RNA sequence: UGUAAAUAGAGUUUGAUCCUGGCUCAGAAUAAAUGCUAUCGGUAUGCUUAACACAUGCAAGUCGAAUGUUUUAAAAACAUGGCGAACGGGUGAGUAACACGUGAAUUAUCUACCUUUUAAUUCGGAAUAAUUAUUUUUAUAAAAAUACGGAAUAAAUAAAUUAAAGUUUUUUAACGUUAAAAGAUGAGUUUGCGCAAGAUUAGGGUAGUUGGUAGUUUAAAAGACUACCAAGCCUAUUAUCUUUAGCUGGUUUGAAAGAAUGAUCAGCCACAUUGGGACUGAGACACGGCCCAAACUUUUUUAAAGGCAGCAGUGGGGAAUUUUGGACAAUGAGCGAAAGCUUGAUCCAGCAAUACCGAGUGAGUGAUGACGGCUAAUUAGGUUGUAAAGCUCUUUCAUUAAGGAGGAAAAUGACAGUACUUAAAAAAGAAGUUCCGGCUAAUACCCGUGCCAGCAGCCGCGGUAAUACGGGAGGAGCGAGCAUUAUUCGGAAUGAUUA
Number, nucleotide and partner (000 for none) at each position: 001u000002g000003u000004a000005a000006a000007u000008a000009g025010a024011g023012u022013u021014u000015g000016a000017u000018c000019c000020u000021g013022g012023c011024u010025c009026a000027g489028a488029a487030u486031a000032a485033a484034u483035g482036c481037u480038a000039u359040c358041g357042g356043u355044a354045u352046g351047c317048u000049u000050a000051a000052c315053a314054c313055a000056u312057g311058c310059a000060a000061g083062u082063c081064g000065a000066a080067u079068g078069u076070u075071u000072u000073a000074a000075a070076a069077a000078c068079a067080u066081g063082g062083c061084g000085a000086a000087c000088g000089g000090g271091u270092g269093a000094g000095u000096a000097a000098c000099a000100c194101g193102u192103g191104a190105a189106u188107u000108a000109u187110c186111u000112a000113c000114c183115u182116u181117u180118u179119a178120a177121u000122u151123c150124g000125g148126a000127a000128u000129a000130a000131u000132u000133a000134u000135u142136u141137u000138u000139a000140u000141a136142a135143a000144a000145a000146u000147a000148c125149g000150g123151a122152a000153u000154a000155a000156a000157u000158a000159a000160a000161u000162u000163a000164a000165a000166g175167u174168u173169u000170u000171u000172u000173a168174a167175c166176g000177u120178u119179a118180a117181a116182a115183g114184a000185u000186g110187a109188g106189u105190u104191u103192g102193c101194g100195c000196a243197a242198g241199a000200u000201u000202a000203g000204g234205g233206u232207a000208g000209u231210u230211g229212g228213u227214a226215g225216u224217u000218u000219a000220a000221a000222a000223g000224a216225c215226u214227a213228c212229c211230a210231a209232g206233c205234c204235u000236a000237u000238u000239a000240u000241c198242u197243u196244u000245a000246g268247c267248u266249g265250g261251u260252u259253u258254g000255a000256a000257a000258g253259a252260a251261u250262g000263a000264u000265c249266a248267g247268c246269c092270a091271c090272a000273u294274u293275g292276g291277g290278a000279c000280u000281g000282a000283g000284a000285c000286a000287c000288g000289g000290c277291c276292c275293a274294a273295a000296c306297u305298u304299u303300u000301u000302u000303a299304a298305a297306g296307g000308c000309a000310g058311c057312a056313g054314u053315g052316g000317g047318g000319a000320a000321u000322u000323u349324u000325g348326g347327a346328c000329a000330a000331u344332g343333a342334g341335c340336g000337a000338a000339a000340g335341c334342u333343u332344g331345a000346u327347c326348c325349a323350g000351c046352a045353a000354u044355a043356c042357c041358g040359a039360g000361u000362g393363a392364g391365u390366g000367a000368u000369g000370a000371c000372g384373g383374c382375u381376a000377a000378u000379u000380a000381g375382g374383u373384u372385g000386u000387a000388a000389a000390g365391c364392u363393c362394u000395u000396u000397c429398a000399u424400u423401a422402a421403g420404g000405a000406g000407g415408a000409a000410a000411a000412u000413g000414a000415c407416a000417g000418u000419a000420c403421u402422u401423a400424a399425a000426a000427a000428a000429g397430a000431a000432g478433u477434u476435c475436c474437g000438g000439c000440u000441a000442a000443u473444a000445c472446c471447c470448g469449u000450g000451c000452c000453a000454g461455c460456a000457g000458c000459c000460g455461c454462g000463g000464u000465a000466a000467u000468a000469c448470g447471g446472g445473a443474g436475g435476a434477g433478c432479g000480a037481g036482c035483a034484u033485u032486a030487u029488u028489c027490g000491g000492a000493a000494u000495g000496a000497u000498u000499a000
A member of the RNA family "Bacterial small subunit ribosomal RNA", 499 nucleotides of a longer RNA. A search with the family's covariance model found it, with a score of 1137 bits. The family is grouped with related families in Rfam's "SSU clan". A reference for the family is Cannone et al. (2002), "The comparative RNA web (CRW) site: an online database of comparative sequence and structure information for ribosomal, intron, and other RNAs", BMC Bioinformatics.